[Rfam]
A member of the RNA family "Small nucleolar RNA SNORD93" from Alligator mississippiensis, 81 nucleotides long. Taxonomically the source falls in Alligator (Eukaryota, Sarcopterygii, Archosauria, Crocodylia). The family has 17 seed sequences and 491 matches in Rfam 15.1. The match comes from Rfam's covariance-model search (61 bits).
RNA sequence: UGGCCAAUGAUGAAAGCAAUAGUCUGAUUGCAUACUUGCUUAAAGACCAGGUCUGAUGGAUAAAAGGAUUUCCUGAGGCCA
Numbered sequence: 001u002g003g004c005c006a007a008u009g010a011u012g013a014a015a016g017c018a019a020u021a022g023u024c025u026g027a028u029u030g031c032a033u034a035c036u037u038g039c040u041u042a043a044a045g046a047c048c049a050g051g052u053c054u055g056a057u058g059g060a061u062a063a064a065a066g067g068a069u070u071u072c073c074u075g076a077g078g079c080c081a
Stems, first nucleotide, its partner, number of pairs: 002080004